[Rfam]
RNA sequence: UUCUCGAAAAGGCAAACCCCGAGUAAUCGGGGGACGCAAAGCCGCGGGUCCCUGUCGGGACGGCUGGGCUGUCGAA
Numbered sequence: 001u002u003c004u005c006g007a008a009a010a011g012g013c014a015a016a017c018c019c020c021g022a023g024u025a026a027u028c029g030g031g032g033g034a035c036g037c038a039a040a041g042c043c044g045c046g047g048g049u050c051c052c053u054g055u056c057g058g059g060a061c062g063g064c065u066g067g068g069c070u071g072u073c074g075a076a
Stems, first nucleotide, its partner, number of pairs: 012037002017032006040070004045066003048061005
Rfam assigns this 76-nucleotide sequence from Marinobacterium lutimaris to the family "c-di-GMP-I riboswitch aptamer". Pairs were carried over by alignment from the consensus structure, which is taken from published work.